Rfam assigns this 113-nucleotide sequence from Anaeroplasma bactoclasticum to the family "FMN riboswitch aptamer (RFN element)". The match comes from Rfam's covariance-model search (108 bits). Rfam's curators write: The RFN element is a highly conserved domain that is found frequently in the 5'-untranslated regions of prokaryotic mRNAs that encode for flavin mononucleotide (FMN) biosynthesis and transport proteins. This element is a metabolite-dependent riboswitch that directly binds FMN in the absence of proteins. In Bacillus subtilis, the riboswitch most likely controls gene expression by causing premature transcription termination within the 5' untranslated region of the ribDEAHT operon and precluding access to the ribosome-binding site of ypaA mRNA.The FMN riboswitch structure, reported in present an FMN-bound six-stem junction, adopts a butterfly-like scaffold, stapled together by opposingly directed but nearly identically folded peripheral domains. Pairs were carried over by alignment from the consensus structure, which is taken from published work.
RNA sequence: UAUUUACUUCGGGGUUUGGUGAAAUUCCAUACCGGCGGUAUAGUCCGCGAGCAAUAGCAUGAUCAGGUGUAAUUCCUGAACCGACAGUAGAGUCUGGAUGAGAGAAGAAAAAG
Number, nucleotide and partner (000 for none) at each position: 001u000002a000003u111004u110005u109006a000007c107008u106009u105010c104011g000012g000013g000014g000015u000016u000017u029018g028019g027020u000021g000022a000023a000024a000025u000026u000027c019028c018029a017030u000031a093032c092033c083034g082035g048036c047037g046038g045039u000040a000041u000042a000043g081044u080045c038046c037047g036048c035049g000050a000051g000052c000053a000054a000055u000056a000057g000058c000059a000060u000061g000062a000063u079064c078065a077066g076067g075068u000069g000070u000071a000072a000073u000074u000075c067076c066077u065078g064079a063080a044081c043082c034083g033084a000085c096086a095087g094088u000089a000090g000091a000092g032093u031094c087095u086096g085097g000098a000099u000100g000101a000102g000103a000104g010105a009106a008107g007108a000109a005110a004111a003112a000113g000